[Rfam]
RNA sequence: CCGCCCGGAGGUCACCAUCCGCCAGCGAGUUUCGCCCGCGGAUGGCGUUUUG
Numbered sequence: 001c002c003g004c005c006c007g008g009a010g011g012u013c014a015c016c017a018u019c020c021g022c023c024a025g026c027g028a029g030u031u032u033c034g035c036c037c038g039c040g041g042a043u044g045g046c047g048u049u050u051u052g
Base pairs, nucleotide, nucleotide: 016044017043018042019041020040021039022038025035026034027033028032
This 52-nucleotide RNA sequence from Fulvimarina pelagi belongs to the Rfam family "ffh sRNA". The sequence is in the family's curated seed alignment.